[Rfam]
Rfam assigns this 71-nucleotide RNA sequence from Pararhizobium mangrovi to the family "Makes More Granules Regulator RNA (mmgR)".
The pairing is the family consensus, mapped onto this sequence.
Gene Ontology terms of the family: response to nitrogen compound, DNA-templated transcription, termination and protein binding.
A search with the family's covariance model found it, with a score of 62 bits.
SuhB later renamed mmgR (makes more granules regulator) was a putative non-coding RNA found multiple times in the Agrobacterium tumefaciens genome and related alpha-proteobacteria. Other non-coding RNAs uncovered in the same analysis include: speF, ybhL, metA, and serC.Several studies inSinorhizobium meliloti showed that suhB element is indeed a non-coding RNA:firstly it was detected on Northern blot and called Sm8RNA, secondly in an RNAseq study referred to as SmelC689.The mutant phenotype's (strain lacking the small RNA) cytoplasm contains higher content of polyhydroxybutyrate (PBH)storage granules than wild type strain. The sRNA is required to limit the PBH intracellular accumulation when the nitrogen-fixing Sinorhizobium meliloti is under condition of surplus carbon in relation to nitrogen. It has been renamed to mmgR. Further study confirmed that mmgR fine-tunes the regulation of PBH storage.Northern blot confirmed the expression of the sRNA in other rhizobia species.
Rfam 15.1 lists 1,791 matches to the family in 918 species.
NCBI's taxonomy places the organism under Bacteria, Pseudomonadota, Alphaproteobacteria, Hyphomicrobiales, Pararhizobium.
RNA sequence: CCGCGUGGCCCUCCUUGGGCGUUUCCUCCCUAGACUUGCCGCGCCUUCGGGCGCGGUUUUUUUUCUGCGCA
Numbered sequence: 001c002c003g004c005g006u007g008g009c010c011c012u013c014c015u016u017g018g019g020c021g022u023u024u025c026c027u028c029c030c031u032a033g034a035c036u037u038g039c040c041g042c043g044c045c046u047u048c049g050g051g052c053g054c055g056g057u058u059u060u061u062u063u064u065c066u067g068c069g070c071a
Base pairs, nucleotide, nucleotide: 008020009019010018011017039056040055041054042053043052044051045050